[Rfam]
RNA: Small nucleolar RNA snoR109
RNA sequence: AGGUUAUAGUUAUAGUCUAUAGACCUGCUGACAGACUAGGUUAUAGUUAUAGUUAUAGUCUAUAAACCUGCUGACAGACUAGGUUAUAGUU
Numbered sequence: 001a002g003g004u005u006a007u008a009g010u011u012a013u014a015g016u017c018u019a020u021a022g023a024c025c026u027g028c029u030g031a032c033a034g035a036c037u038a039g040g041u042u043a044u045a046g047u048u049a050u051a052g053u054u055a056u057a058g059u060c061u062a063u064a065a066a067c068c069u070g071c072u073g074a075c076a077g078a079c080u081a082g083g084u085u086a087u088a089g090u091u
Stems, first nucleotide, its partner, number of pairs: 022085006029078001034072001036070001039068004043063004